A member of the RNA family "mir-1175 microRNA precursor family" from Oryctes borbonicus, 70 nucleotides long. Its family is annotated with miRNA-mediated post-transcriptional gene silencing and RISC complex in the Gene Ontology. The match comes from Rfam's covariance-model search (69 bits). The organism belongs to Oryctes, within Eukaryota. The base pairs follow the family's consensus structure, which was predicted with RNAalifold.
Nucleotides: 070
Stems, first nucleotide, its partner, number of pairs: 006064003009060005016054001017052001022047002025045005
Number, partner (000 for none) and nucleotide at each position: 001000u002000g003000a004000g005000u006064a007063a008062g009060u010059g011058g012057a013056g014000u015000a016054g017052u018000g019000g020000u021000c022047u023046c024000u025045u026044c027043a028042c029041u030000u031000u032000u033000a034000u035000u036000a037000g038000a039000a040000c041029a042028g043027u044026g045025a046023g047022a048000u049000u050000c051000a052017a053000c054016u055000c056013c057012u058011c059010c060009a061000u062008c063007u064006u065000a066000u067000u068000u069000u070000a